[Rfam]
RNA sequence: UAGCUGGUGCAAGUCCAGCCGGGGUAAAGGCCAAGCUGCCCCGUAGCUAGCAGGCAACUUAGGGAGAAAUCCGUGGGUUGAAGCCCUGGGGCGGCCAACCGAUUUCUGGCGAAGAUCGACUGGUACCUCAUCAAGA
Numbered sequence: 001u002a003g004c005u006g007g008u009g010c011a012a013g014u015c016c017a018g019c020c021g022g023g024g025u026a027a028a029g030g031c032c033a034a035g036c037u038g039c040c041c042c043g044u045a046g047c048u049a050g051c052a053g054g055c056a057a058c059u060u061a062g063g064g065a066g067a068a069a070u071c072c073g074u075g076g077g078u079u080g081a082a083g084c085c086c087u088g089g090g091g092c093g094g095c096c097a098a099c100c101g102a103u104u105u106c107u108g109g110c111g112a113a114g115a116u117c118g119a120c121u122g123g124u125a126c127c128u129c130a131u132c133a134a135g136a
Stems, first nucleotide, its partner, number of pairs: 020043005051088004055080006064071002113128002
Dot-bracket structure: ...................(((((..............))))).......((((((((((...((....))...))))))....))))........................((............))........

This 136-nucleotide sequence from Thermobacillus composti belongs to the Rfam family "Group II catalytic intron D1-D4-4". On this family, see Chu et al., EMBO J 2001: "Control of branch-site choice by a group II intron". Taxonomically the source falls in Thermobacillus composti (Bacteria, Bacilli, Caryophanales, Paenibacillaceae). The base pairs follow the family's consensus structure. Rfam's curators write: Group II introns are found in rRNA, tRNA and mRNA of organelles in fungi, plants and protists, and also in mRNA in bacteria.